[Rfam]
RNA sequence: AGUUUUCUUCAGUCUGUGAAGAGAUCUCAUCAUGUAUCAACCUUCAAGAGCUGAUGAAGCUUUUACGAUGAAUGAAGCA
Numbered sequence: 001a002g003u004u005u006u007c008u009u010c011a012g013u014c015u016g017u018g019a020a021g022a023g024a025u026c027u028c029a030u031c032a033u034g035u036a037u038c039a040a041c042c043u044u045c046a047a048g049a050g051c052u053g054a055u056g057a058a059g060c061u062u063u064u065a066c067g068a069u070g071a072a073u074g075a076a077g078c079a
Stems, first nucleotide, its partner, number of pairs: 002078005008072004013068002017065002020063004025059001027057005